Shown here is a 55-nucleotide sequence from Memecylon pauciflorum, a member of the family "Plastid-ccsA-ndhD-1 3UTR RNA".
RNA sequence: AACUGUCGAGAACCAUUUGAAUCACUACACUAAUUGAUUCAAAAGGUUCUCAUAA
Numbered sequence: 001a002a003c004u005g006u007c008g009a010g011a012a013c014c015a016u017u018u019g020a021a022u023c024a025c026u027a028c029a030c031u032a033a034u035u036g037a038u039u040c041a042a043a044a045g046g047u048u049c050u051c052a053u054a055a
Stems, first nucleotide, its partner, number of pairs: 008051007016043009
The literature on the family includes a 2023 paper in Plant Commun by Richter et al., "Retrograde signaling in plants: A critical review focusing on the GUN pathway and beyond".